This 197-nucleotide sequence from Actinidia chinensis belongs to the Rfam family "Early nodulin 40".
Its family is annotated with nodulation in the Gene Ontology.
A reference for the family is Gultyaev and Roussis (2007), "Identification of conserved secondary structures and expansion segments in enod40 RNAs reveals new enod40 homologues in plants", Nucleic Acids Res.
The base pairs follow the family's consensus structure, which is taken from published work.
RNA sequence: AUGGAUAUAGAGUUUGAUGAGUCCUUCAAUGGGUCUUGAAAAGCAGGGCAAUUUGGAGAGAGAGAGAGAGAGAGAGAGCUCCAAAUUCAGACAGUUUGACUGUGGUUAGAGCUUCAUCUAGAUUCUGACAACGGCGAUGGCUGAGGCCUAGAAAACCGGCAAGUCACAGAACGGCAAGGGAAUCUUACAAGAGUCUU
Numbered sequence: 001a002u003g004g005a006u007a008u009a010g011a012g013u014u015u016g017a018u019g020a021g022u023c024c025u026u027c028a029a030u031g032g033g034u035c036u037u038g039a040a041a042a043g044c045a046g047g048g049c050a051a052u053u054u055g056g057a058g059a060g061a062g063a064g065a066g067a068g069a070g071a072g073a074g075a076g077a078g079c080u081c082c083a084a085a086u087u088c089a090g091a092c093a094g095u096u097u098g099a100c101u102g103u104g105g106u107u108a109g110a111g112c113u114u115c116a117u118c119u120a121g122a123u124u125c126u127g128a129c130a131a132c133g134g135c136g137a138u139g140g141c142u143g144a145g146g147c148c149u150a151g152a153a154a155a156c157c158g159g160c161a162a163g164u165c166a167c168a169g170a171a172c173g174g175c176a177a178g179g180g181a182a183u184c185u186u187a188c189a190a191g192a193g194u195c196u197u
Stems, first nucleotide, its partner, number of pairs: 055082003094156004112146003180195002183192002